Record summary: Rfam assigns this 74-nucleotide RNA from Jannaschia pohangensis to the family "Singlet oxygen resistance RNA X". Rfam 15.1 lists 528 matches to the family in 356 species.
RNA sequence: GACGCUUGAAGGACGGCAUUGCCGCCUUCACCUCCCUGUUGGACUUCGGCCGAGCCUUGAGCUCGGCCUUUUUU
Numbered sequence: 001g002a003c004g005c006u007u008g009a010a011g012g013a014c015g016g017c018a019u020u021g022c023c024g025c026c027u028u029c030a031c032c033u034c035c036c037u038g039u040u041g042g043a044c045u046u047c048g049g050c051c052g053a054g055c056c057u058u059g060a061g062c063u064c065g066g067c068c069u070u071u072u073u074u
Stems, first nucleotide, its partner, number of pairs: 008029005048068008
Rfam's curators write: SorX (RSs2461)like SorY is a singlet oxygen induced sRNA that counteracts oxidative stress by targeting mRNA for a transporter in Rhodobacter. It also has an impact on resistance against organic hydroperoxides. It targets SD sequence of potA mRNA via an aSD sequence. The family's RNA type in Rfam is small RNA. The organism belongs to Jannaschia, within Bacteria.